[Rfam]
RNA sequence: ACCACGACGGCACGGCGGUAACGGUGCCGCGUCAUGAACAGACACCGUGUUCCGGGAAGUUUCGGGGCACAUCGGGGCGUU
Numbered sequence: 001a002c003c004a005c006g007a008c009g010g011c012a013c014g015g016c017g018g019u020a021a022c023g024g025u026g027c028c029g030c031g032u033c034a035u036g037a038a039c040a041g042a043c044a045c046c047g048u049g050u051u052c053c054g055g056g057a058a059g060u061u062u063c064g065g066g067g068c069a070c071a072u073c074g075g076g077g078c079g080u081u
Stems, first nucleotide, its partner, number of pairs: 004032003008029006016023002047070008
Shown here is an 81-nucleotide RNA from Streptomyces sp. Z26, a member of the family "nrdJ RNA". By type it is a small RNA. Lineage of the source: Bacteria > Actinomycetes > Kitasatosporales > Streptomycetaceae > Streptomyces. Pairs were carried over by alignment from the consensus structure, which is taken from published work. The match comes from Rfam's covariance-model search (47 bits).